[Rfam]
A member of the RNA family "Small nucleolar RNA R160" from Oryza meridionalis, 79 nucleotides long.
Rfam describes the family as follows. snoR160 is a C/D box small nucleolar RNA, which acts as a methylation guide for 25S ribosomal RNA in plants. snoR160 has been alternatively named snoZ270 in rice.
Rfam links the family to the GO terms RNA processing and nucleolus.
The family has 9 seed sequences and 799 matches in Rfam 15.1.
RNA sequence: AGCAAAAUGAGGAGGUCAAUUGAUCUGAAGUAUUAUUGUUGAUACAUCCAUUCAUGGUCUUCAAAGUUCUCUAAUUGUU
Number, nucleotide and partner (000 for none) at each position: 001a079002g078003c077004a076005a075006a000007a000008u000009g000010a000011g000012g000013a000014g000015g000016u000017c000018a000019a000020u000021u000022g000023a000024u000025c000026u000027g000028a000029a000030g000031u000032a000033u000034u000035a000036u000037u000038g000039u000040u000041g000042a000043u000044a000045c000046a000047u000048c000049c000050a000051u000052u000053c000054a000055u000056g000057g000058u000059c000060u000061u000062c000063a000064a000065a000066g000067u000068u000069c000070u000071c000072u000073a000074a000075u005076u004077g003078u002079u001

Taxonomically the source falls in Oryza (Eukaryota, Streptophytina, Petrosaviidae, Oryzinae).